[Rfam]
RNA: Small nucleolar RNA SNORA67
Organism: Neotoma lepida
RNA sequence: GUCCAAGGUGAUUCCCUCUCCAAGGGGCUGACUAGUGCCCUUUUCAGGAACGUAGCAACUUGGAAGAAAACCUGGCAUGCCUGAGGUCUCUGGGGAACAAGGGAUGCUUGUUGCCUCUGCCUGCCUUUGGCUGCCUACAUGU
Numbered sequence: 001g002u003c004c005a006a007g008g009u010g011a012u013u014c015c016c017u018c019u020c021c022a023a024g025g026g027g028c029u030g031a032c033u034a035g036u037g038c039c040c041u042u043u044u045c046a047g048g049a050a051c052g053u054a055g056c057a058a059c060u061u062g063g064a065a066g067a068a069a070a071c072c073u074g075g076c077a078u079g080c081c082u083g084a085g086g087u088c089u090c091u092g093g094g095g096a097a098c099a100a101g102g103g104a105u106g107c108u109u110g111u112u113g114c115c116u117c118u119g120c121c122u123g124c125c126u127u128u129g130g131c132u133g134c135c136u137a138c139a140u141g142u
Base pairs, nucleotide, nucleotide: 002064003063004062005061006060007059009057010056019049020048021047022043023042024041025040026039027038028037075132078130083125092115095112096111